[Rfam]
The family of this 52-nucleotide RNA sequence from Actibacterium mucosum is "serC leader".
It scores 68 bits against the family's covariance model.
The pairing is the family consensus, mapped onto this sequence.
It is annotated as a cis-regulatory leader.
The literature on the family includes a 2005 paper in Genome Biol by Corbino et al., "Evidence for a second class of S-adenosylmethionine riboswitches and other regulatory RNA motifs in alpha-proteobacteria".
Rfam's curators write: This family is a putative regulatory RNA structure that is found upstream of the serC-serA operon in some alpha-proteobacteria. The final stem of the structure overlaps the ribosome binding site of the serC reading frame.

RNA sequence: CUGCGGGACACCCUUCCCCAACGAAGGGCACAUAUCUGGAAGGAUACCAGUC
Numbered sequence: 001c002u003g004c005g006g007g008a009c010a011c012c013c014u015u016c017c018c019c020a021a022c023g024a025a026g027g028g029c030a031c032a033u034a035u036c037u038g039g040a041a042g043g044a045u046a047c048c049a050g051u052c
Stems, first nucleotide, its partner, number of pairs: 011028006033046005